The record is a 96-nucleotide RNA sequence from Clostridium cellulovorans, which matches "Glycine riboswitch aptamer" in Rfam. Lineage of the source: Bacteria > Eubacteriales > Clostridiaceae > Clostridium > Clostridium cellulovorans. The match comes from Rfam's covariance-model search (62 bits).
[Rfam]
RNA sequence: GGACGAACCUCUGGAGAGACUCGUUGUGAGCACCGAAGGGGAAAGCUGGCAUUGUGUCCAGUGAAACUCUCAGGUAAAAAGGACAGGGGAUAACUA
Numbered sequence: 001g002g003a004c005g006a007a008c009c010u011c012u013g014g015a016g017a018g019a020c021u022c023g024u025u026g027u028g029a030g031c032a033c034c035g036a037a038g039g040g041g042a043a044a045g046c047u048g049g050c051a052u053u054g055u056g057u058c059c060a061g062u063g064a065a066a067c068u069c070u071c072a073g074g075u076a077a078a079a080a081g082g083a084c085a086g087g088g089g090a091u092a093a094c095u096a
Base pairs, nucleotide, nucleotide: 006091008089009088010087011086012085013084020030021029022028032075033074034073035071036070039069040068041067045062046061047060048059049058